[Rfam]
RNA sequence: GGCCUCCUGGUGCUUACCACAGGCUGUGUUCUGAUACUGACUGCAUAGAAAAAGAAGUGGGCCUGCCUUCUCUGUUCUUAUACUGACUGUAUAGAAAAAGAAGAGAUCCUACCCUAUAUACGUCUCUGCCCAGGCCCUAGUCAUGGUCUGAACUGUGAAUGGGGGACCAUGG
Numbered sequence: 001g002g003c004c005u006c007c008u009g010g011u012g013c014u015u016a017c018c019a020c021a022g023g024c025u026g027u028g029u030u031c032u033g034a035u036a037c038u039g040a041c042u043g044c045a046u047a048g049a050a051a052a053a054g055a056a057g058u059g060g061g062c063c064u065g066c067c068u069u070c071u072c073u074g075u076u077c078u079u080a081u082a083c084u085g086a087c088u089g090u091a092u093a094g095a096a097a098a099a100g101a102a103g104a105g106a107u108c109c110u111a112c113c114c115u116a117u118a119u120a121c122g123u124c125u126c127u128g129c130c131c132a133g134g135c136c137c138u139a140g141u142c143a144u145g146g147u148c149u150g151a152a153c154u155g156u157g158a159a160u161g162g163g164g165g166a167c168c169a170u171g172g
Base pairs, nucleotide, nucleotide: 004103005102007100008099020089021088022087026083027082028081029080112164113163114162115161116160117159126150128148130146131145132144134142
RNA: Small nucleolar RNA SNORA51